The family of this 68-nucleotide sequence from Comamonas sp. JNW is "ilvH RNA". Rfam classes the family as a cis-regulatory element. The base pairs follow the family's consensus structure, which is taken from published work.

RNA sequence: GACGAAUCUAUUGUCUACCGAGCCCAGCGCUUACCGGCGUUGGGGGAGGGUAGCGAAAAGAGGAAUCU
Numbered sequence: 001g002a003c004g005a006a007u008c009u010a011u012u013g014u015c016u017a018c019c020g021a022g023c024c025c026a027g028c029g030c031u032u033a034c035c036g037g038c039g040u041u042g043g044g045g046g047a048g049g050g051u052a053g054c055g056a057a058a059a060g061a062g063g064a065a066u067c068u
Stems, first nucleotide, its partner, number of pairs: 011056003015053005023044009